[Rfam]
This 101-nucleotide RNA from Massiliimalia timonensis belongs to the Rfam family "THF (Tetrahydrofolate) riboswitch aptamer". Gene Ontology term of the family: tetrahydrofolate metabolic process. Tetrahydrofolate (THF) riboswitch was first reported for Ames et al. as an RNA motif in 5' untranslated (5'-UTR)regions of folate transport and biosynthesis genes in Firmicutes genomes.
RNA sequence: GGCAGAGUAGGAUCUUGUGCGUUAAGUGCUGUAUGAACGGGGAGUUGUCAUAUAGACGAAAGGUAAGGUUACUUGCGGUACAAGGUUCGCAUCCCGCUGCU
Numbered sequence: 001g002g003c004a005g006a007g008u009a010g011g012a013u014c015u016u017g018u019g020c021g022u023u024a025a026g027u028g029c030u031g032u033a034u035g036a037a038c039g040g041g042g043a044g045u046u047g048u049c050a051u052a053u054a055g056a057c058g059a060a061a062g063g064u065a066a067g068g069u070u071a072c073u074u075g076c077g078g079u080a081c082a083a084g085g086u087u088c089g090c091a092u093c094c095c096g097c098u099g100c101u
Base pairs, nucleotide, nucleotide: 001101002100003099004098005097010088011087012086013085014084015083016082017081018080019079020077021076022075026057027056029055030054031053032052033051034050035049036048040094041093042092044090061074062073063072064071